Shown here is a 163-nucleotide sequence from Xylanimonas ulmi, a member of the family "c-di-AMP riboswitch aptamer (ydaO/yuaA leader)". Gene Ontology terms of the family: cyclic-di-AMP binding and regulation of gene expression.
RNA sequence: UCCCAGUGUUCGCACAUGACAGGGACGGGGGACCCACGUUUUCUGACCGUCUUGACGGUCUUGGGGUGAAGCCGGGCGAGGCCUUCGGGCCGAGACCGGCCGGGUGCUUUUUCUCCCACCCGAACCCGACAGCUCACCUCGCAGGCGGCCGGAGAGGGACCAC
Numbered sequence: 001u002c003c004c005a006g007u008g009u010u011c012g013c014a015c016a017u018g019a020c021a022g023g024g025a026c027g028g029g030g031g032a033c034c035c036a037c038g039u040u041u042u043c044u045g046a047c048c049g050u051c052u053u054g055a056c057g058g059u060c061u062u063g064g065g066g067u068g069a070a071g072c073c074g075g076g077c078g079a080g081g082c083c084u085u086c087g088g089g090c091c092g093a094g095a096c097c098g099g100c101c102g103g104g105u106g107c108u109u110u111u112u113c114u115c116c117c118a119c120c121c122g123a124a125c126c127c128g129a130c131a132g133c134u135c136a137c138c139u140c141g142c143a144g145g146c147g148g149c150c151g152g153a154g155a156g157g158g159a160c161c162a163c
Stems, first nucleotide, its partner, number of pairs: 002024003026141005035063002064127003072099004102121004
Dot-bracket structure: .(((.................))).(((((....((.........................))(((.....((((....................))))..((((............))))...))).........)))))......................